[Rfam]
RNA sequence: ACAUUGGUAACUGGUGGUGGGCACGCUUCACGCGGCCUUGACCAGUCAUGUUCAAUCGACAAGACGACAACAAGCCGCCCGAAAUCCGAGGCGGCUUUUUU
Dot-bracket structure: ..........(((((.(.((((.(((.....)))))))).)))))...((((..........)))).....((((((((((.....)).))))))))....

The record is a 101-nucleotide RNA sequence from Neorhizobium sp. SOG26, which matches "RcsR1 sRNA" in Rfam. The match comes from Rfam's covariance-model search (77 bits). About the family: RcsR1 (rhizobial cold and salinity stress riboregulator 1) trans-acting sRNA, formerly known as SmelC587, is a stress-related riboregulator, conserved in Sinorhizobium, Rhizobium and Agrobacterium. Rfam classes the family as a small RNA. The organism belongs to Neorhizobium, within Bacteria. The family's consensus secondary structure is taken from published work.